[Rfam]
RNA sequence: AACAAAUGAUGAAACUAUUCUGCCAAAUGAUUAAUAUGAUUAUAACCCUACUGUUUCCAUAUUACUCUGAUUGUU
Numbered sequence: 001a002a003c004a005a006a007u008g009a010u011g012a013a014a015c016u017a018u019u020c021u022g023c024c025a026a027a028u029g030a031u032u033a034a035u036a037u038g039a040u041u042a043u044a045a046c047c048c049u050a051c052u053g054u055u056u057c058c059a060u061a062u063u064a065c066u067c068u069g070a071u072u073g074u075u
Base pairs, nucleotide, nucleotide: 001075002074003073004072
The family of this 75-nucleotide RNA sequence from Gadus morhua is "Small nucleolar RNA SNORD47". Pairs were carried over by alignment from the consensus structure, which was predicted with ILM. Lineage of the source: Eukaryota > Opisthokonta > Neoteleostei > Ctenosquamata > Gadus.